[Rfam]
RNA sequence: UCGUCAAGGCUAACGGAAGAAGAGAGAGAGUACAGCUUUGGGUGGUUAAGAGCAGAUAGCACUUGCGUGUGUGCCUAUUGGAUCUCUUUUCCGCCAAGGCUGUACCCUCUCUCUUCGUCUCUUAGCAUCUUGAUGC
Numbered sequence: 001u002c003g004u005c006a007a008g009g010c011u012a013a014c015g016g017a018a019g020a021a022g023a024g025a026g027a028g029a030g031u032a033c034a035g036c037u038u039u040g041g042g043u044g045g046u047u048a049a050g051a052g053c054a055g056a057u058a059g060c061a062c063u064u065g066c067g068u069g070u071g072u073g074c075c076u077a078u079u080g081g082a083u084c085u086c087u088u089u090u091c092c093g094c095c096a097a098g099g100c101u102g103u104a105c106c107c108u109c110u111c112u113c114u115u116c117g118u119c120u121c122u123u124a125g126c127a128u129c130u131u132g133a134u135g136c
Base pairs, nucleotide, nucleotide: 005132006131009126012123013122015120016119017118019116020115021114022113023112024111025110026109027108028107030105031104032103033102034101035100036099037098038097039096040095041094